[Rfam]
The family of this 126-nucleotide sequence from Arabidopsis thaliana is "MIR859 microRNA precursor family".
RNA sequence: AAAGGUAGAUGUCGAAAUCUCUCUGUUGUGAAGUCAAACAUGAGUAUGAAUUAACAUUAAUGGAUCUUUUUGAUUCAUAAUACUCAUGUUUGGUUUCACAGUAGAUAGAUAUCGACGUCUAUCUUU
Numbered sequence: 001a002a003a004g005g006u007a008g009a010u011g012u013c014g015a016a017a018u019c020u021c022u023c024u025g026u027u028g029u030g031a032a033g034u035c036a037a038a039c040a041u042g043a044g045u046a047u048g049a050a051u052u053a054a055c056a057u058u059a060a061u062g063g064a065u066c067u068u069u070u071u072g073a074u075u076c077a078u079a080a081u082a083c084u085c086a087u088g089u090u091u092g093g094u095u096u097c098a099c100a101g102u103a104g105a106u107a108g109a110u111a112u113c114g115a116c117g118u119c120u121a122u123c124u125u126u
Stems, first nucleotide, its partner, number of pairs: 001126015017110004022105002025102022047077008